A member of the RNA family "RT-2 RNA", 222 nucleotides long. It is annotated as a small RNA. The sequence is in the family's curated seed alignment.

RNA sequence: GAUGGGUCAGGACAGUAACCGGCAGCGGCGAAGCAGCACCCUUGCAGAAGGAGAGCUUGUUCCCGGCACGGCCAAAACAAUCCUCUGAUGCAGUCAGCCGGACGCUGCUUGCAUGGCGGGCAAACGUGCGGAUAGCCCGUUCCAUGGCUGGUACUGCCACGCGGAUAGAACACGCACCCAAGAAUAAUUCCGUACAGGGGAUGCCCUAACGGGCGAGGAGAA
Numbered sequence: 001g002a003u004g005g006g007u008c009a010g011g012a013c014a015g016u017a018a019c020c021g022g023c024a025g026c027g028g029c030g031a032a033g034c035a036g037c038a039c040c041c042u043u044g045c046a047g048a049a050g051g052a053g054a055g056c057u058u059g060u061u062c063c064c065g066g067c068a069c070g071g072c073c074a075a076a077a078c079a080a081u082c083c084u085c086u087g088a089u090g091c092a093g094u095c096a097g098c099c100g101g102a103c104g105c106u107g108c109u110u111g112c113a114u115g116g117c118g119g120g121c122a123a124a125c126g127u128g129c130g131g132a133u134a135g136c137c138c139g140u141u142c143c144a145u146g147g148c149u150g151g152u153a154c155u156g157c158c159a160c161g162c163g164g165a166u167a168g169a170a171c172a173c174g175c176a177c178c179c180a181a182g183a184a185u186a187a188u189u190c191c192g193u194a195c196a197g198g199g200g201a202u203g204c205c206c207u208a209a210c211g212g213g214c215g216a217g218g219a220g221a222a
Base pairs, nucleotide, nucleotide: 004041005040006039007038019028020027065073066072067071080202081201082200083199084198085197086196087195089194090157091156092155093154094153095150096149097148098147099146104112105111115141116140117139118138119137120136121135161193162192163191164190165189168179